[Rfam]
RNA sequence: AAUAGGUGCAGUCUCCGAGCCCGGUUACCUAAAGCGAAAAAGCCAUGGGGCCAGGGCCGACAGGGUGUACGGGGAAACCCGUGCGCCUCCCGGUGCGGAAAGGAGAUGGUUGCCAUGAUGU
Numbered sequence: 001a002a003u004a005g006g007u008g009c010a011g012u013c014u015c016c017g018a019g020c021c022c023g024g025u026u027a028c029c030u031a032a033a034g035c036g037a038a039a040a041a042g043c044c045a046u047g048g049g050g051c052c053a054g055g056g057c058c059g060a061c062a063g064g065g066u067g068u069a070c071g072g073g074g075a076a077a078c079c080c081g082u083g084c085g086c087c088u089c090c091c092g093g094u095g096c097g098g099a100a101a102g103g104a105g106a107u108g109g110u111u112g113c114c115a116u117g118a119u120g121u
Stems, first nucleotide, its partner, number of pairs: 003115001011107006019057004024052001026050001028048002034043002063088011089098002
This 121-nucleotide sequence from Desulfofundulus thermobenzoicus belongs to the Rfam family "Molybdenum/Tungsten riboswitch aptamer (Moco RNA motif)". Taxonomically the source falls in Desulfofundulus (Bacteria, Bacillati, Eubacteriales, Peptococcaceae). The family's consensus secondary structure is taken from published work. It scores 72 bits against the family's covariance model.